[Rfam]
A member of the RNA family "Small nucleolar RNA Z102/R77" from Salix dunnii, 89 nucleotides long. Clan: SNORD44 clan. It scores 89 bits against the family's covariance model. Gene Ontology terms of the family: RNA processing and nucleolus. It is annotated as a C/D-box small nucleolar RNA. Rfam 15.1 lists 1,346 matches to the family in 224 species.

RNA sequence: GAAUGAGGUGAUGAUCAUGAUAUGUUUCCCUAUUGGUUUGAUUGCCGUGAUGAUGGCGUCGACUUUGUAUUAGCUCUAUCUGAUCAUUC
Numbered sequence: 001g002a003a004u005g006a007g008g009u010g011a012u013g014a015u016c017a018u019g020a021u022a023u024g025u026u027u028c029c030c031u032a033u034u035g036g037u038u039u040g041a042u043u044g045c046c047g048u049g050a051u052g053a054u055g056g057c058g059u060c061g062a063c064u065u066u067g068u069a070u071u072a073g074c075u076c077u078a079u080c081u082g083a084u085c086a087u088u089c
Stems, first nucleotide, its partner, number of pairs: 002088004040060001043058004
Dot-bracket structure: .((((..................................(..((((........)))).)........................)))).